[Rfam]
RNA sequence: AGUCCUAGAGAGAGAAGCAGGGUCUGAUCCAUAGCCUCCAUGGUAGCUGUUGAUCAGCUCUUGCCUAUCUCUCUCUCUCUG
Number, nucleotide and partner (000 for none) at each position: 001a000002g000003u000004c000005c000006u000007a000008g073009a072010g071011a070012g069013a068014g000015a066016a000017g064018c063019a062020g061021g000022g059023u000024c057025u056026g055027a054028u053029c052030c000031a000032u049033a048034g047035c046036c000037u000038c000039c000040a000041u000042g000043g000044u000045a000046g035047c034048u033049g032050u000051u000052g029053a028054u027055c026056a025057g024058c000059u022060c000061u020062u019063g018064c017065c000066u015067a000068u013069c012070u011071c010072u009073c008074u000075c000076u000077c000078u000079c000080u000081g000
RNA: mir-574 microRNA precursor family